[Rfam]
The family of this 180-nucleotide RNA from Hydrogenophaga crassostreae is "6S / SsrS RNA". The organism belongs to Hydrogenophaga, within Bacteria. The match comes from Rfam's covariance-model search (49 bits). For this family Rfam cites "6S RNA regulates E. coli RNA polymerase activity" (Wassarman and Storz, Cell, 2000). The base pairs follow the family's consensus structure, which is taken from published work.
RNA sequence: CAGUGUCUACAGCGCAUGCCGGGCUUUAUAUUUCCUUGAACCAAUGCUCAUUGAGCACGGGCCUGGAACAUUUCCUGAUUGGUGUGAGCAUCUCGCGUCAGAUGAACCCGACGUCAGGCUGACCUAGCCCACCUGAACCCCCGGUUCAGGAUGACGGUCCGGUGGCACUGUAGACACCUU
Numbered sequence: 001c002a003g004u005g006u007c008u009a010c011a012g013c014g015c016a017u018g019c020c021g022g023g024c025u026u027u028a029u030a031u032u033u034c035c036u037u038g039a040a041c042c043a044a045u046g047c048u049c050a051u052u053g054a055g056c057a058c059g060g061g062c063c064u065g066g067a068a069c070a071u072u073u074c075c076u077g078a079u080u081g082g083u084g085u086g087a088g089c090a091u092c093u094c095g096c097g098u099c100a101g102a103u104g105a106a107c108c109c110g111a112c113g114u115c116a117g118g119c120u121g122a123c124c125u126a127g128c129c130c131a132c133c134u135g136a137a138c139c140c141c142c143g144g145u146u147c148a149g150g151a152u153g154a155c156g157g158u159c160c161g162g163u164g165g166c167a168c169u170g171u172a173g174a175c176a177c178c179u180u
Base pairs, nucleotide, nucleotide: 003177004176005175006174007173008172009171010170011169012168014166015165017164018163019162033151034150035149037148038147039146040145041144042143059130060129061128065124066123070120074118075117076116077115078114079113084108089104090103091102092101093100